RNA sequence: GUGGCGGGCCGGGCCCCUCUGGCGAGUGAUGCAAGCACUCGUGAUGUCGGACCGCAUCG
Dot-bracket structure: .....((.((((.........(((((((.......)))))))....)))).))......